[Rfam]
A member of the RNA family "TPP riboswitch aptamer (THI element)" from Oceanicola sp. 22II-s10i, 103 nucleotides long.
RNA sequence: UGCAUCACCUCGGGGUGCCCGGCUGCGGGCUGAGAUGCGAUGACGCGAACCCGUUGAACCUGAACCGGUUAGAACCGGCGGAGGGAAGGCUGUUCCGAAGGCA
Numbered sequence: 001u002g003c004a005u006c007a008c009c010u011c012g013g014g015g016u017g018c019c020c021g022g023c024u025g026c027g028g029g030c031u032g033a034g035a036u037g038c039g040a041u042g043a044c045g046c047g048a049a050c051c052c053g054u055u056g057a058a059c060c061u062g063a064a065c066c067g068g069u070u071a072g073a074a075c076c077g078g079c080g081g082a083g084g085g086a087a088g089g090c091u092g093u094u095c096c097g098a099a100g101g102c103a
Stems, first nucleotide, its partner, number of pairs: 008089003011053004016047001017030005037046003059084003065078004